[Rfam]
RNA sequence: AUCGUUACGAAACGUGGUAACUCCACCACCGUUGGCGUCAUAUAACUGCCAAUGGGAGUUGGAGUUCCCAUGUGACGGACGAC
Numbered sequence: 001a002u003c004g005u006u007a008c009g010a011a012a013c014g015u016g017g018u019a020a021c022u023c024c025a026c027c028a029c030c031g032u033u034g035g036c037g038u039c040a041u042a043u044a045a046c047u048g049c050c051a052a053u054g055g056g057a058g059u060u061g062g063a064g065u066u067c068c069c070a071u072g073u074g075a076c077g078g079a080c081g082a083c
Base pairs, nucleotide, nucleotide: 003081004080005079008077009076012073016069017068019066020065021064022063023061026058029055030054031053032052033051034050035049036048037047
Shown here is an 83-nucleotide RNA from Hermetia illucens, a member of the family "mir-2765 microRNA precursor family". The match comes from Rfam's covariance-model search (62 bits). Rfam 15.1 lists 109 matches to the family in 106 species. Rfam links the family to the GO terms RISC complex and miRNA-mediated post-transcriptional gene silencing. The family's consensus secondary structure was predicted with RNAalifold.